Source information:
Shown here is a 352-nucleotide RNA from Prosthecobacter vanneervenii, a member of the family "transfer-messenger RNA".
RNA sequence: GGGGGCGUACUGGUUUCGACGGGUCGUCUUAGUUCGGAGCUGCAUGCCGAGGAUGAUUCGUUGGCCUCGUUAAACACCGGAUCAAAAACAUAAAUGCAAACUCUAACGAGCUAGCACUCGCAGCUUAAGCACUGCGACAUCCUUCAGGCAAUGUCUGGUAGCCUGAACGAUGCCACUACCAGGCUGGUUUGGCGGCCGGGCGACCGGGUCACAAACGAGACCAAACAGGACGCUGGGUGAAGAGUAGGCUGUCUCAAGCCGCCUCCCACCGAGACCAAAGAUGAGACUGAGCAUGGAGACGCUACGGGCAACGGUGAUUCGGACAGGGGUUCAACUCCCCUCGCCUCCACUU
Numbered sequence: 001g002g003g004g005g006c007g008u009a010c011u012g013g014u015u016u017c018g019a020c021g022g023g024u025c026g027u028c029u030u031a032g033u034u035c036g037g038a039g040c041u042g043c044a045u046g047c048c049g050a051g052g053a054u055g056a057u058u059c060g061u062u063g064g065c066c067u068c069g070u071u072a073a074a075c076a077c078c079g080g081a082u083c084a085a086a087a088a089c090a091u092a093a094a095u096g097c098a099a100a101c102u103c104u105a106a107c108g109a110g111c112u113a114g115c116a117c118u119c120g121c122a123g124c125u126u127a128a129g130c131a132c133u134g135c136g137a138c139a140u141c142c143u144u145c146a147g148g149c150a151a152u153g154u155c156u157g158g159u160a161g162c163c164u165g166a167a168c169g170a171u172g173c174c175a176c177u178a179c180c181a182g183g184c185u186g187g188u189u190u191g192g193c194g195g196c197c198g199g200g201c202g203a204c205c206g207g208g209u210c211a212c213a214a215a216c217g218a219g220a221c222c223a224a225a226c227a228g229g230a231c232g233c234u235g236g237g238u239g240a241a242g243a244g245u246a247g248g249c250u251g252u253c254u255c256a257a258g259c260c261g262c263c264u265c266c267c268a269c270c271g272a273g274a275c276c277a278a279a280g281a282u283g284a285g286a287c288u289g290a291g292c293a294u295g296g297a298g299a300c301g302c303u304a305c306g307g308g309c310a311a312c313g314g315u316g317a318u319u320c321g322g323a324c325a326g327g328g329g330u331u332c333a334a335c336u337c338c339c340c341u342c343g344c345c346u347c348c349a350c351u352u
Stems, first nucleotide, its partner, number of pairs: 001348007020321009030311001032309005038303003043295005048069005054084007118137006138172004143167001145165005151159001153184006189215002192212001194210002198231001201228001236270004242264001247260003251287004325341005
Taxonomically the source falls in Prosthecobacter (Bacteria, Pseudomonadati, Verrucomicrobiales, Verrucomicrobiaceae). By type it is a non-coding RNA gene.